GP20-b RNA: a 61-nucleotide RNA sequence.

RNA sequence: GGCCUUCCCGUGGGCCUAAAAUAUCGGGGCGGCGGGUGCUGGCGACCACCUAAAACGCCUA
Dot-bracket structure: ((((...[[[..))))........]]].......((((........))))...........

Rfam classes the family as a cis-regulatory element.
The sequence is in the family's curated seed alignment.